RNA sequence: GGAAGUGGGCCCUCCGUAGCCGCCGCGCAGGCAGAGACUGUGAACCACCGCAAGCUGCGUCGGUCAAGAGCCGGGUGGUGAGCGUUGCGGAAAAGGUGCGCCGUGAGUGUGUCAGGU
Numbered sequence: 001g002g003a004a005g006u007g008g009g010c011c012c013u014c015c016g017u018a019g020c021c022g023c024c025g026c027g028c029a030g031g032c033a034g035a036g037a038c039u040g041u042g043a044a045c046c047a048c049c050g051c052a053a054g055c056u057g058c059g060u061c062g063g064u065c066a067a068g069a070g071c072c073g074g075g076u077g078g079u080g081a082g083c084g085u086u087g088c089g090g091a092a093a094a095g096g097u098g099c100g101c102c103g104u105g106a107g108u109g110u111g112u113c114a115g116g117u
Stems, first nucleotide, its partner, number of pairs: 001015003005011001016041004021036001023034001025032002046116001048090006054079002057076002061073004095113006

Overview: The family of this 117-nucleotide RNA sequence from Actinocrispum wychmicini is "Group II catalytic intron D1-D4-2". Group II introns are found in rRNA, tRNA and mRNA of organelles in fungi, plants and protists, and also in mRNA in bacteria. The source organism's lineage runs through Bacteria, Actinomycetes, Pseudonocardiales, Pseudonocardiaceae and Actinocrispum. On this family, see Bonen and Vogel, Trends Genet 2001: "The ins and outs of group II introns".